[Rfam]
RNA: Plastid-ycf2 5UTR RNA
RNA sequence: GUGCAUCCAAUAGGAAUUGAACCUACGAAUUUGCCAAUUAUGAGUUAGGCUUUUUACCAUUCAGCCAUGGAUGC
Numbered sequence: 001g002u003g004c005a006u007c008c009a010a011u012a013g014g015a016a017u018u019g020a021a022c023c024u025a026c027g028a029a030u031u032u033g034c035c036a037a038u039u040a041u042g043a044g045u046u047a048g049g050c051u052u053u054u055u056a057c058c059a060u061u062c063a064g065c066c067a068u069g070g071a072u073g074c
Stems, first nucleotide, its partner, number of pairs: 003074006011025004040068003044065003048061002